[Rfam]
RNA sequence: GUCAGAGACAAUCUUGCAGUUAUAAGGGAUCAACAUACUGGGUACAAUUCUAUAUGUUACCAAUAUUUGUGUCUCGGGAAGGUCUGAGAUAAAGUCAAACAAUAAAAAAAUGAUUAUCAUUUUAAAUUGUUUCAUGUUUCUAGAAGGACAAGCUUGUUAUUGGGCUACGUUGAUACCAGAAAAAGCGGGGAAUCGAUUAACUUAGGAAGCUUUAAAUAGCUGAGGUUUUAUUUGUUCGAUUUUUAUAUAUGCCGAUGAAAAAAUCACGUGACUAGCAAUUUGAGUAUAAUCUGCAAGCUACAAUUUAUUAUGUAGAACUCAAUUCAGACUAAUCUGUCUCUGGC
Numbered sequence: 001g002u003c004a005g006a007g008a009c010a011a012u013c014u015u016g017c018a019g020u021u022a023u024a025a026g027g028g029a030u031c032a033a034c035a036u037a038c039u040g041g042g043u044a045c046a047a048u049u050c051u052a053u054a055u056g057u058u059a060c061c062a063a064u065a066u067u068u069g070u071g072u073c074u075c076g077g078g079a080a081g082g083u084c085u086g087a088g089a090u091a092a093a094g095u096c097a098a099a100c101a102a103u104a105a106a107a108a109a110a111u112g113a114u115u116a117u118c119a120u121u122u123u124a125a126a127u128u129g130u131u132u133c134a135u136g137u138u139u140c141u142a143g144a145a146g147g148a149c150a151a152g153c154u155u156g157u158u159a160u161u162g163g164g165c166u167a168c169g170u171u172g173a174u175a176c177c178a179g180a181a182a183a184a185g186c187g188g189g190g191a192a193u194c195g196a197u198u199a200a201c202u203u204a205g206g207a208a209g210c211u212u213u214a215a216a217u218a219g220c221u222g223a224g225g226u227u228u229u230a231u232u233u234g235u236u237c238g239a240u241u242u243u244u245a246u247a248u249a250u251g252c253c254g255a256u257g258a259a260a261a262a263a264u265c266a267c268g269u270g271a272c273u274a275g276c277a278a279u280u281u282g283a284g285u286a287u288a289a290u291c292u293g294c295a296a297g298c299u300a301c302a303a304u305u306u307a308u309u310a311u312g313u314a315g316a317a318c319u320c321a322a323u324u325c326a327g328a329c330u331a332a333u334c335u336g337u338c339u340c341u342g343g344c
Stems, first nucleotide, its partner, number of pairs: 001344004008337003013297007026075005041061004045056001084327005093273004135150002138148003151166006167269003171266004186254003298315005
Rfam assigns this 344-nucleotide RNA from Aphidius gifuensis to the family "Nuclear RNase P". It is annotated as a ribozyme. The family is grouped with related families in Rfam's "RNaseP clan". Rfam links the family to the GO terms ribonuclease P activity, tRNA processing and ribonuclease P complex. The family's consensus secondary structure is taken from published work.